[Rfam]
RNA sequence: CUGAGGUCGGAAUUUUUAAUGAAUUACAAUAAAAAUUGACCUCUUGA
Numbered sequence: 001c002u003g004a005g006g007u008c009g010g011a012a013u014u015u016u017u018a019a020u021g022a023a024u025u026a027c028a029a030u031a032a033a034a035a036u037u038g039a040c041c042u043c044u045u046g047a
Base pairs, nucleotide, nucleotide: 003043004042005041006040007039008038009037010036013035014034015033016032017031018030020028021027
Source information:
This 47-nucleotide sequence from Solanum commersonii belongs to the Rfam family "MIR7991 microRNA precursor family". A search with the family's covariance model found it, with a score of 58 bits. Rfam 15.1 lists 299 matches to the family in 2 species. The source organism's lineage runs through Eukaryota, Gunneridae, Solanales, Solanaceae and Solanum.